Group II catalytic intron D1-D4-3: a 172-nucleotide RNA from Marinoscillum furvescens.

[Rfam]
RNA sequence: UUGUCUGUGAAGACCUGCAUGAAGGAAGCCGAAAGCAAAGCACUGACCUGAUGUACAAGAACUACAUAAAAGGCACUCUGUUUGGGUAAGGAGGCGCAUAUCUCCAAAGCCCAGUGCUCAUACGGGAAAAUAGAGUGUAGAUGUAGCAGGUAUAAGUGUGAAGGUAUUUGCG
Dot-bracket structure: ..((((....))))...............(((..((...(((((.(((((...........((((((.....(((.(((((((((((..((((........))))...))))...............))))))).)))..)))))))))))...)))))....))..)))..
Numbered sequence: 001u002u003g004u005c006u007g008u009g010a011a012g013a014c015c016u017g018c019a020u021g022a023a024g025g026a027a028g029c030c031g032a033a034a035g036c037a038a039a040g041c042a043c044u045g046a047c048c049u050g051a052u053g054u055a056c057a058a059g060a061a062c063u064a065c066a067u068a069a070a071a072g073g074c075a076c077u078c079u080g081u082u083u084g085g086g087u088a089a090g091g092a093g094g095c096g097c098a099u100a101u102c103u104c105c106a107a108a109g110c111c112c113a114g115u116g117c118u119c120a121u122a123c124g125g126g127a128a129a130a131u132a133g134a135g136u137g138u139a140g141a142u143g144u145a146g147c148a149g150g151u152a153u154a155a156g157u158g159u160g161a162a163g164g165u166a167u168u169u170g171c172g
Stems, first nucleotide, its partner, number of pairs: 003014004030170003035165002040159005046151005062146006073138003077134007084112004090105004